[Rfam]
RNA: Eukaryotic large subunit ribosomal RNA, nucleotides 664 to 1262
Organism: Lynx canadensis
RNA sequence: CCCUCCGAAGUUUCCCUCAGGAUAGCUGGCGCUCUCGCACGCGAACCCACGCAGUUUUAUCCGGUAAAGCGAAUGAUUAGAGGUCUUGGGGCCGAAACGAUCUCAACCUAUUCUCAAACUUUAAAUGGGUAAGAAGCCCGGCUCGCUGGCGUGGAGCCGGGCGUGGAAUGCGAGUGCCUAGUGGGCCACUUUUGGUAAGCAGAACUGGCGCUGCGGGAUGAACCGAACGCCGGGUUAAGGCGCCCGAUGCCGACGCUCAUCAGACCCCAGAAAAGGUGUUGGUUGAUAUAGACAGCAGGACGGUGGCCAUGGAAGUCGGAAUCCGCUAAGGAGUGUGUAACAACUCACCUGCCGAAUCAACUAGCCCUGAAAAUGGAUGGCGCUGGAGCGUCGGGCCCAUACCCGGCCGUCGCUGGCAGUCAGUAAUGCGAGUGAGAGGGAUGGGAGCAGUGGGUGUGUGUGUGGUGGUUUCCCUUUUUGGGGGGCCAAUGCCUCCCCCACCCCCACCCCAAGGACGCUAUGCUACAAGUAGGAGGGCCGCUGCGGUGAGCCUUGAAGCCUAGGGCGCGGGCCCGGGUGGAGCCGCCGCAGGUGCAGAU
Numbered sequence: 001c002c003c004u005c006c007g008a009a010g011u012u013u014c015c016c017u018c019a020g021g022a023u024a025g026c027u028g029g030c031g032c033u034c035u036c037g038c039a040c041g042c043g044a045a046c047c048c049a050c051g052c053a054g055u056u057u058u059a060u061c062c063g064g065u066a067a068a069g070c071g072a073a074u075g076a077u078u079a080g081a082g083g084u085c086u087u088g089g090g091g092c093c094g095a096a097a098c099g100a101u102c103u104c105a106a107c108c109u110a111u112u113c114u115c116a117a118a119c120u121u122u123a124a125a126u127g128g129g130u131a132a133g134a135a136g137c138c139c140g141g142c143u144c145g146c147u148g149g150c151g152u153g154g155a156g157c158c159g160g161g162c163g164u165g166g167a168a169u170g171c172g173a174g175u176g177c178c179u180a181g182u183g184g185g186c187c188a189c190u191u192u193u194g195g196u197a198a199g200c201a202g203a204a205c206u207g208g209c210g211c212u213g214c215g216g217g218a219u220g221a222a223c224c225g226a227a228c229g230c231c232g233g234g235u236u237a238a239g240g241c242g243c244c245c246g247a248u249g250c251c252g253a254c255g256c257u258c259a260u261c262a263g264a265c266c267c268c269a270g271a272a273a274a275g276g277u278g279u280u281g282g283u284u285g286a287u288a289u290a291g292a293c294a295g296c297a298g299g300a301c302g303g304u305g306g307c308c309a310u311g312g313a314a315g316u317c318g319g320a321a322u323c324c325g326c327u328a329a330g331g332a333g334u335g336u337g338u339a340a341c342a343a344c345u346c347a348c349c350u351g352c353c354g355a356a357u358c359a360a361c362u363a364g365c366c367c368u369g370a371a372a373a374u375g376g377a378u379g380g381c382g383c384u385g386g387a388g389c390g391u392c393g394g395g396c397c398c399a400u401a402c403c404c405g406g407c408c409g410u411c412g413c414u415g416g417c418a419g420u421c422a423g424u425a426a427u428g429c430g431a432g433u434g435a436g437a438g439g440g441a442u443g444g445g446a447g448c449a450g451u452g453g454g455u456g457u458g459u460g461u462g463u464g465g466u467g468g469u470u471u472c473c474c475u476u477u478u479u480g481g482g483g484g485g486c487c488a489a490u491g492c493c494u495c496c497c498c499c500a501c502c503c504c505c506a507c508c509c510c511a512a513g514g515a516c517g518c519u520a521u522g523c524u525a526c527a528a529g530u531a532g533g534a535g536g537g538c539c540g541c542u543g544c545g546g547u548g549a550g551c552c553u554u555g556a557a558g559c560c561u562a563g564g565g566c567g568c569g570g571g572c573c574c575g576g577g578u579g580g581a582g583c584c585g586c587c588g589c590a591g592g593u594g595c596a597g598a599u
Stems, first nucleotide, its partner, number of pairs: 001537006011024001013022003028178006055134008067122001068120002074116003079111001081109003086106006093099001136162009185209004190204005214225003229407005235401001239397003248394001250393001254390003274368003278365010295352005301325003307319002326330001331346001335344002409526002412523002539594001541591008550583002558578002564573003